This 93-nucleotide RNA from Synaphobranchus kaupii belongs to the Rfam family "mir-217 microRNA precursor family". Gene Ontology terms of the family: RISC complex and miRNA-mediated post-transcriptional gene silencing. Rfam 15.1 lists 698 matches to the family in 641 species. A reference for the family is Lim et al. (2003), "Vertebrate microRNA genes", Science.
RNA sequence: AGCUUUCCGAUGUUGGCGAUACUGCAUCAGGAACUGAUUGGAUGAUAUCGAGACGCCAUCAGCUCCGGAUGCAUUUCCUUCAGCAUGGAAAGG
Numbered sequence: 001a002g003c004u005u006u007c008c009g010a011u012g013u014u015g016g017c018g019a020u021a022c023u024g025c026a027u028c029a030g031g032a033a034c035u036g037a038u039u040g041g042a043u044g045a046u047a048u049c050g051a052g053a054c055g056c057c058a059u060c061a062g063c064u065c066c067g068g069a070u071g072c073a074u075u076u077c078c079u080u081c082a083g084c085a086u087g088g089a090a091a092g093g
Base pairs, nucleotide, nucleotide: 023073024072025071026070027069030066031065032064034062035061036060037059039058040057041056